The record is an 88-nucleotide sequence from Streptomyces sp. SID4985, which matches "Streptomyces RNA 3202" in Rfam. The pairing is the family consensus, mapped onto this sequence. On this family, see Vockenhuber et al., RNA Biol 2011: "Deep sequencing-based identification of small non-coding RNAs in Streptomyces coelicolor". Rfam classes the family as a small RNA. The source organism's lineage runs through Bacteria, Actinomycetota, Actinomycetes, Kitasatosporales and Streptomyces.

RNA sequence: GCCAGUUCCGGCGCCAUCCCCCCCCGGCGCCGGGACUUCCCAGCCGGGCCCGGCGCCUACCCCCCCCAGGCGCCGGGCCCGGCUUUUG
Dot-bracket structure: ....((((((.(((............))).)))))).....(((((((((((((((((.........)))))))))))))))))....